Notes
The family of this 73-nucleotide sequence from Rugosimonospora africana is "tRNA". The family's consensus secondary structure is taken from published work. The match comes from Rfam's covariance-model search (61 bits). Its family is annotated with triplet codon-amino acid adaptor activity in the Gene Ontology. NCBI's taxonomy places the organism under Bacteria, Actinomycetota, Micromonosporales, Micromonosporaceae, Rugosimonospora.
[Rfam]
RNA sequence: GGGGUUGUAGCUCAGGAGGUAGAGCGUCGGUUCGGCAGACCGAAGGCCCGGGGUUCGACUCCCCGCAGCUCCA
Numbered sequence: 001g002g003g004g005u006u007g008u009a010g011c012u013c014a015g016g017a018g019g020u021a022g023a024g025c026g027u028c029g030g031u032u033c034g035g036c037a038g039a040c041c042g043a044a045g046g047c048c049c050g051g052g053g054u055u056c057g058a059c060u061c062c063c064c065g066c067a068g069c070u071c072c073a
Base pairs, nucleotide, nucleotide: 001072002071003070004069005068006067007066010025011024012023013022027043028042029041030040031039049065050064051063052062053061